[Rfam]
RNA sequence: GGCGAAUCUAUCGCUUGCCGAGCCCACCGGUUACCGCCGGUGGGGGAGGGCAGCGAAAUGAGGAGCCG
Numbered sequence: 001g002g003c004g005a006a007u008c009u010a011u012c013g014c015u016u017g018c019c020g021a022g023c024c025c026a027c028c029g030g031u032u033a034c035c036g037c038c039g040g041u042g043g044g045g046g047a048g049g050g051c052a053g054c055g056a057a058a059u060g061a062g063g064a065g066c067c068g
Stems, first nucleotide, its partner, number of pairs: 011056003015053005023044009
ilvH RNA: a 68-nucleotide RNA sequence from Ramlibacter sp. WS9. The match comes from Rfam's covariance-model search (80 bits). The source organism's lineage runs through Bacteria, Pseudomonadati, Betaproteobacteria, Comamonadaceae and Ramlibacter. By type it is a cis-regulatory element. The base pairs follow the family's consensus structure, which is taken from published work.